Annotation
This 282-nucleotide RNA sequence from Phyllotreta striolata belongs to the Rfam family "RNase MRP". About the family: RNase MRP is an enzymatically active ribonucleoprotein with two distinct roles in eukaryotes. Gene Ontology terms of the family: ribonuclease MRP activity, ribonuclease MRP complex and rRNA processing. By type it is a ribozyme.

[Rfam]
RNA sequence: UGAUCCUUUCACGUUCGACUACGGGGUUACGCACAGAGUUCCCGGUAACUCCAUCUAUGGGUGAACCCCGGGGAAGGUCCUCGGAUGCCUGGUAGAAAGUACCGCCGGCUAUUCGCCCGGUUAGCCGCGGUCGCCGCCGAACCAAGAUAGGACGGGGGCGGUUAAAAACCCCCGGAUCGGCGGUUCGGUAUGGCCGCGGUGCUGGUCAAAGAUUAGAGAAAUGUCGUUAAAAACGAUUCGAUCGCGGUCGUUUAACUCAACGGGGCCCACACUGAAAGGAUC
Numbered sequence: 001u002g003a004u005c006c007u008u009u010c011a012c013g014u015u016c017g018a019c020u021a022c023g024g025g026g027u028u029a030c031g032c033a034c035a036g037a038g039u040u041c042c043c044g045g046u047a048a049c050u051c052c053a054u055c056u057a058u059g060g061g062u063g064a065a066c067c068c069c070g071g072g073g074a075a076g077g078u079c080c081u082c083g084g085a086u087g088c089c090u091g092g093u094a095g096a097a098a099g100u101a102c103c104g105c106c107g108g109c110u111a112u113u114c115g116c117c118c119g120g121u122u123a124g125c126c127g128c129g130g131u132c133g134c135c136g137c138c139g140a141a142c143c144a145a146g147a148u149a150g151g152a153c154g155g156g157g158g159c160g161g162u163u164a165a166a167a168a169c170c171c172c173c174g175g176a177u178c179g180g181c182g183g184u185u186c187g188g189u190a191u192g193g194c195c196g197c198g199g200u201g202c203u204g205g206u207c208a209a210a211g212a213u214u215a216g217a218g219a220a221a222u223g224u225c226g227u228u229a230a231a232a233a234c235g236a237u238u239c240g241a242u243c244g245c246g247g248u249c250g251u252u253u254a255a256c257u258c259a260a261c262g263g264g265g266c267c268c269a270c271a272c273u274g275a276a277a278g279g280a281u282c
Stems, first nucleotide, its partner, number of pairs: 002282010016226004022070006036051005076267002079265004091103004104121005124200009136189004160170004232252006
Dot-bracket structure: .((((((((((....((((..((((((........(((((......))))).............)))))).....[[.[[[[........((((.....))))(((((........)))))..(((((((((...((((....................((((...))))...............))))..)))))))))......................)))).....((((((.........)))))).........]]]]]].....))))))))))